[Rfam]
RNA sequence: AACAUAUCAGAUGGACACCUUUUGGUUAACUGCUUGUAUCUUUCCCAAGCUUCAUAGAGGGAUUCACCAUCUUUUUGUUUGAAGGUCUAAACAUCCACUCUAAGCUU
Numbered sequence: 001a002a003c004a005u006a007u008c009a010g011a012u013g014g015a016c017a018c019c020u021u022u023u024g025g026u027u028a029a030c031u032g033c034u035u036g037u038a039u040c041u042u043u044c045c046c047a048a049g050c051u052u053c054a055u056a057g058a059g060g061g062a063u064u065c066a067c068c069a070u071c072u073u074u075u076u077g078u079u080u081g082a083a084g085g086u087c088u089a090a091a092c093a094u095c096c097a098c099u100c101u102a103a104g105c106u107u
Stems, first nucleotide, its partner, number of pairs: 001107001005102002057074002060071001